Shown here is a 102-nucleotide RNA sequence from Bacillus sp. MUM 116, a member of the family "Purine riboswitch aptamer".
RNA sequence: UAGGGUUAUUUACGUUACCUUCAUAUAUCCUCGAUGAUAGGGUUCGAGAGUCUCUACCGGGCUGCCGUAAAUGGCCUGACUAUGAAGGCAGAAAGUUAUUCA
Numbered sequence: 001u002a003g004g005g006u007u008a009u010u011u012a013c014g015u016u017a018c019c020u021u022c023a024u025a026u027a028u029c030c031u032c033g034a035u036g037a038u039a040g041g042g043u044u045c046g047a048g049a050g051u052c053u054c055u056a057c058c059g060g061g062c063u064g065c066c067g068u069a070a071a072u073g074g075c076c077u078g079a080c081u082a083u084g085a086a087g088g089c090a091g092a093a094a095g096u097u098a099u100u101c102a
Stems, first nucleotide, its partner, number of pairs: 018088008030048005058078007